[Rfam]
Shown here is a 182-nucleotide RNA sequence from Caballeronia novacaledonica, a member of the family "6S / SsrS RNA". NCBI's taxonomy places the organism under Bacteria, Pseudomonadota, Betaproteobacteria, Burkholderiales, Caballeronia. A reference for the family is Barrick et al. (2005), "6S RNA is a widespread regulator of eubacterial RNA polymerase that resembles an open promoter", RNA. Pairs were carried over by alignment from the consensus structure, which is taken from published work. Rfam classes the family as a non-coding RNA gene. A search with the family's covariance model found it, with a score of 67 bits.

RNA sequence: GGUUCCCUGCCUGGUACGCCAAGGUCAUAUAUUCCUUGAACCAAUGCUACAUUGGCACGGUUGCGGAACCUUGCAGCACGGGCGCGCGCGUCGCUAGUCCGAUGUACCCGAAGUGUUGCUUACCGCGACCAAUCUUGAACCCAGGUUCAGGAUGCCGGCCUAGCGGCCGUGGCGGGGACCCC
Number, nucleotide and partner (000 for none) at each position: 001g000002g180003u000004u178005c177006c176007c175008u174009g173010c172011c171012u169013g168014g167015u166016a000017c165018g164019c163020c000021a000022a000023g000024g000025u000026c000027a000028u000029a000030u000031a000032u000033u152034c151035c150036u000037u149038g148039a147040a146041c145042c144043a000044a000045u000046g000047c000048u000049a000050c000051a000052u000053u000054g000055g000056c000057a000058c000059g130060g129061u128062u000063g126064c125065g124066g123067a000068a121069c000070c000071u000072u000073g119074c118075a117076g116077c115078a114079c113080g000081g000082g000083c000084g108085c000086g000087c000088g000089c104090g103091u102092c101093g100094c000095u000096a000097g000098u000099c000100c093101g092102a091103u090104g089105u000106a000107c000108c084109c000110g000111a000112a000113g079114u078115g077116u076117u075118g074119c073120u000121u068122a000123c066124c065125g064126c063127g000128a061129c060130c059131a000132a000133u000134c000135u000136u000137g000138a000139a000140c000141c000142c000143a000144g042145g041146u040147u039148c038149a037150g035151g034152a033153u000154g000155c000156c000157g000158g000159c000160c000161u000162a000163g019164c018165g017166g015167c014168c013169g012170u000171g011172g010173c009174g008175g007176g006177g005178a004179c000180c002181c000182c000